[Rfam]
A member of the RNA family "Selenocysteine transfer RNA" from Anaerobacillus alkalidiazotrophicus, 93 nucleotides long. Gene Ontology term of the family: triplet codon-amino acid adaptor activity. The family's consensus secondary structure is taken from published work. The organism belongs to Anaerobacillus, within Bacteria.
RNA sequence: GGGGCUGGUUGUGUAACUGGUGUUUGCCGAGGUCUUCAAAACCUUAUGGGAGGCGCGUGCCGUCUCCGGUGGGUUCGAUUCCCACACAGUCCC
Numbered sequence: 001g002g003g004g005c006u007g008g009u010u011g012u013g014u015a016a017c018u019g020g021u022g023u024u025u026g027c028c029g030a031g032g033u034c035u036u037c038a039a040a041a042c043c044u045u046a047u048g049g050g051a052g053g054c055g056c057g058u059g060c061c062g063u064c065u066c067c068g069g070u071g072g073g074u075u076c077g078a079u080u081c082c083c084a085c086a087c088a089g090u091c092c093c
Base pairs, nucleotide, nucleotide: 001093002092003091004090005089006088007087008085011027012026013025015024016023017022029045030044031043032042033041049067050066051065052064053063070084071083072082073081